This 52-nucleotide sequence belongs to the Rfam family "serC leader". It is one of the family's seed sequences. Rfam links the family to the GO term regulation of gene expression. This family is a putative regulatory RNA structure that is found upstream of the serC-serA operon in some alpha-proteobacteria.
[Rfam]
RNA sequence: CGGCGGGACACCCUUCCCCAACGAAGGGCAUAUAUCUGAGAGGAUACCAGCA
Dot-bracket structure: ..........((((((......))))))....(((((....)))))......